[Rfam]
The family of this 51-nucleotide RNA sequence is "nhaA-I RNA". The base pairs follow the family's consensus structure, which is taken from published work. Rfam's curators write: Acidobacteria, Alphaproteobacteria, Betaproteobacteria and Gammaproteobacteria, Verrucomicrobia, cand. division NC10.
RNA sequence: GGGUUCGGAAGGUUCCUUCCGGAGGUUGUUUAGAUAGUCGGGCCGCUAUCU
Number, nucleotide and partner (000 for none) at each position: 001g000002g000003g000004u000005u022006c021007g020008g019009a018010a017011g016012g000013u000014u000015c000016c011017u010018u009019c008020c007021g006022g005023a000024g000025g000026u000027u000028g000029u000030u000031u000032a051033g050034a049035u048036a047037g046038u045039c000040g000041g000042g000043c000044c000045g038046c037047u036048a035049u034050c033051u032
Source information: It is annotated as a riboswitch.